[Rfam]
RNA sequence: AAUUAUUUUAGUAGGAGUAGAGAGAAGAAUAUUUAUUCUAUAUUCUAUCAGUACCAAUACGCAAUAGAG
Numbered sequence: 001a002a003u004u005a006u007u008u009u010a011g012u013a014g015g016a017g018u019a020g021a022g023a024g025a026a027g028a029a030u031a032u033u034u035a036u037u038c039u040a041u042a043u044u045c046u047a048u049c050a051g052u053a054c055c056a057a058u059a060c061g062c063a064a065u066a067g068a069g
Base pairs, nucleotide, nucleotide: 003022004021006019008017009016043068044067051060052059053058
Annotation
The record is a 69-nucleotide RNA sequence from Capsicum annuum, which matches "Plastid-clpP 5UTR RNA" in Rfam. Rfam's curators write: Plastid clpP is a non-coding RNA (ncRNA) recognised in plastids. Taxonomically the source falls in Capsicum (Eukaryota, Streptophytina, Mesangiospermae, Gunneridae). The base pairs follow the family's consensus structure, which was predicted with LocARNA. Rfam 15.1 lists 2,105 matches to the family in 526 species. The literature on the family includes a 2023 paper in Plant Commun by Richter et al., "Retrograde signaling in plants: A critical review focusing on the GUN pathway and beyond".